[Rfam]
RNA: ASpks TB sRNA
RNA sequence: CUUCAGGGAGCCGAGCCACAACGGGCGCCCCUCGGGGCGGUUUUGGCCGUACGUCGCCAGCAGCGCCUGCGCCUC
Numbered sequence: 001c002u003u004c005a006g007g008g009a010g011c012c013g014a015g016c017c018a019c020a021a022c023g024g025g026c027g028c029c030c031c032u033c034g035g036g037g038c039g040g041u042u043u044u045g046g047c048c049g050u051a052c053g054u055c056g057c058c059a060g061c062a063g064c065g066c067c068u069g070c071g072c073c074u075c
Stems, first nucleotide, its partner, number of pairs: 016024002031071001033069001038065002043060003047056001049054001